[Rfam]
RNA sequence: CGGCGCUAACGCAUCUUGUCUUUAAAGAACUAGAGGCAGGUCAUAUAGAACCGUUACUUAGCAAUUGGAAUACGCCCAUCUUUGUUAUUAGGAAAUCAUCAUGAUCCUUUAGGCUGUUGCAUGAUCUCAGAGCUGUUAAUGCCCAGCUUGUUCCCUUUGGACCAGCGCAGCAGGGCGGCCCAUUGCUCUCUGCUAUACCUCAAGGCUGGCCUCUAAUGGUCAUUGACCUCAAGGAUUGUUUUUAAUCCAUUCCGCUAGCAGAGCAGGACCGGGAAGCUUUUGCGUUCAC
Numbered sequence: 001c002g003g004c005g006c007u008a009a010c011g012c013a014u015c016u017u018g019u020c021u022u023u024a025a026a027g028a029a030c031u032a033g034a035g036g037c038a039g040g041u042c043a044u045a046u047a048g049a050a051c052c053g054u055u056a057c058u059u060a061g062c063a064a065u066u067g068g069a070a071u072a073c074g075c076c077c078a079u080c081u082u083u084g085u086u087a088u089u090a091g092g093a094a095a096u097c098a099u100c101a102u103g104a105u106c107c108u109u110u111a112g113g114c115u116g117u118u119g120c121a122u123g124a125u126c127u128c129a130g131a132g133c134u135g136u137u138a139a140u141g142c143c144c145a146g147c148u149u150g151u152u153c154c155c156u157u158u159g160g161a162c163c164a165g166c167g168c169a170g171c172a173g174g175g176c177g178g179c180c181c182a183u184u185g186c187u188c189u190c191u192g193c194u195a196u197a198c199c200u201c202a203a204g205g206c207u208g209g210c211c212u213c214u215a216a217u218g219g220u221c222a223u224u225g226a227c228c229u230c231a232a233g234g235a236u237u238g239u240u241u242u243u244a245a246u247c248c249a250u251u252c253c254g255c256u257a258g259c260a261g262a263g264c265a266g267g268a269c270c271g272g273g274a275a276g277c278u279u280u281u282g283c284g285u286u287c288a289c
Base pairs, nucleotide, nucleotide: 011120012119013118018114019113020112021111051068052067055064087105088104089103090102092100142271147267148266149265150264151263152262153261159213160212163209165207168204173199174198175196177194178193179192182189215251216250217249218248219247
About this RNA: This 289-nucleotide sequence from Upupa epops belongs to the Rfam family "Retroviral 3'UTR stability element". On this family, see Weil et al., J Virol 2009: "Structural characterization of the Rous sarcoma virus RNA stability element". Pairs were carried over by alignment from the consensus structure, which is taken from published work. Lineage of the source: Eukaryota > Tetrapoda > Amniota > Dinosauria > Upupa. The match comes from Rfam's covariance-model search (173 bits).